[Rfam]
RNA: Small nucleolar RNA Z13/snr52
RNA sequence: UCCUGAGAUGACGAAAAAUUCCGGAUGUAAACCAUUACUUCUCCGAGAGCGCAAACCCCAUGUGGAGAUUUCCGUUGCCUUCCUUCUGAUCUAUAUC
Numbered sequence: 001u002c003c004u005g006a007g008a009u010g011a012c013g014a015a016a017a018a019u020u021c022c023g024g025a026u027g028u029a030a031a032c033c034a035u036u037a038c039u040u041c042u043c044c045g046a047g048a049g050c051g052c053a054a055a056c057c058c059c060a061u062g063u064g065g066a067g068a069u070u071u072c073c074g075u076u077g078c079c080u081u082c083c084u085u086c087u088g089a090u091c092u093a094u095a096u097c
Stems, first nucleotide, its partner, number of pairs: 004095002022074004